RNA: UnaL2 LINE 3' element
RNA sequence: UUAAAAUUAAUUUGUAAGUCGCUUUGGACAAAAGCGUCUGCUAAAUAAUUAAAU
Dot-bracket structure: ............((((...((((((.....))))))..))).)...........